RNA sequence: AAGCGUUCUCAGGGCGGGGUGAAACUCCCCACCGGCGGUGAUGGCGGCACGUUCCGGAAGGAACAGCAGCACAAGCCCGCGAGCGCCUGGGGCUCGCAAUGAGCUCCAGGGUCAGCAGAUUUCGGUGCGAUUCCGAAGCCGACGGUCACAGUCCGGAUGAAAGAGAGCGCGA
Number, nucleotide and partner (000 for none) at each position: 001a000002a000003g170004c169005g168006u167007u166008c165009u164010c163011a000012g000013g000014g000015c000016g000017g029018g028019g027020u000021g000022a000023a000024a000025c000026u000027c019028c018029c017030c000031a152032c151033c141034g140035g080036c079037g078038g077039u000040g000041a000042u000043g000044g000045c000046g000047g000048c000049a000050c000051g000052u000053u000054c000055c000056g000057g000058a000059a000060g000061g000062a000063a000064c000065a000066g000067c000068a000069g000070c000071a000072c000073a000074a000075g139076c138077c038078c037079g036080c035081g000082a000083g116084c115085g000086c000087c000088u000089g000090g000091g000092g000093c000094u000095c000096g000097c000098a000099a000100u000101g000102a000103g000104c000105u000106c000107c000108a000109g000110g000111g000112u000113c000114a000115g084116c083117a000118g000119a000120u000121u137122u136123c135124g134125g133126u000127g000128c000129g000130a000131u000132u000133c125134c124135g123136a122137a121138g076139c075140c034141g033142a000143c155144g154145g153146u000147c000148a000149c000150a000151g032152u031153c145154c144155g143156g000157a000158u000159g000160a000161a000162a000163g010164a009165g008166a007167g006168c005169g004170c003171g000172a000
RNA: FMN riboswitch aptamer (RFN element)